A member of the RNA family "PreQ1 (pre queuosine) riboswitch aptamer" from Pristimantibacillus lignocellulolyticus, 46 nucleotides long. Rfam describes the family as follows. This family is a bacterial riboswitch that binds to the metabolite preQ1, an intermediate in the biosynthesis of the modified nucleoside queuosine from GTP. One example of this riboswitch is located in the leader of the Bacillus subtilis ykvJKLM (queCDEF) operon which encodes four genes necessary for queuosine production. PreQ1 binding to the riboswitch aptamer is thought to induce premature transcription termination within the leader to down-regulate expression of these genes. Pairs were carried over by alignment from the consensus structure. The match comes from Rfam's covariance-model search (41 bits). Gene Ontology term of the family: queuosine biosynthetic process. The literature on the family includes a 2023 paper in Nucleic Acids Res by Schroeder et al., "A riboswitch separated from its ribosome-binding site still regulates translation".

[Rfam]
RNA sequence: UGGCCCGCGGUUCGUAAACUUCCCGCGUCAACAAAACUAAGGAGGA
Numbered sequence: 001u002g003g004c005c006c007g008c009g010g011u012u013c014g015u016a017a018a019c020u021u022c023c024c025g026c027g028u029c030a031a032c033a034a035a036a037c038u039a040a041g042g043a044g045g046a
Stems, first nucleotide, its partner, number of pairs: 006027005015039002